[Rfam]
RNA: Small nucleolar RNA R30/Z108
RNA sequence: GAAGGUUACAAUGAGGAUAAAGAAGCUCCCUCUUCUGAUGUCCAUUGAGGAGAAUCUGCUGGCAGAAUCGAACCUAAUAAUCUCCAUUGCCUUCUGAGUAA
Numbered sequence: 001g002a003a004g005g006u007u008a009c010a011a012u013g014a015g016g017a018u019a020a021a022g023a024a025g026c027u028c029c030c031u032c033u034u035c036u037g038a039u040g041u042c043c044a045u046u047g048a049g050g051a052g053a054a055u056c057u058g059c060u061g062g063c064a065g066a067a068u069c070g071a072a073c074c075u076a077a078u079a080a081u082c083u084c085c086a087u088u089g090c091c092u093u094c095u096g097a098g099u100a101a
Stems, first nucleotide, its partner, number of pairs: 006101004